[Rfam]
RNA sequence: UGCCUAAACCUGCCGUUCGGCGGGCAUGGCGCAAAGUCCGAUCAGAGCUAAUAAACCCAUCAUGUGGGAAUGCUCUGAUCGCCCGUAUCGGGAAACCGAUAUGGAGGGCUAAAAACCCUC
Numbered sequence: 001u002g003c004c005u006a007a008a009c010c011u012g013c014c015g016u017u018c019g020g021c022g023g024g025c026a027u028g029g030c031g032c033a034a035a036g037u038c039c040g041a042u043c044a045g046a047g048c049u050a051a052u053a054a055a056c057c058c059a060u061c062a063u064g065u066g067g068g069a070a071u072g073c074u075c076u077g078a079u080c081g082c083c084c085g086u087a088u089c090g091g092g093a094a095a096c097c098g099a100u101a102u103g104g105a106g107g108g109c110u111a112a113a114a115a116c117c118c119u120c
Base pairs, nucleotide, nucleotide: 001031002030003029004028009024010023011022012021013020014019039081040080041079042078043077044076045075046074047073048072053071056068057067058066059065084103085102086101087100088099089098090097091096104120105119106118107117108116
A member of the RNA family "LOOT RNA", 120 nucleotides long.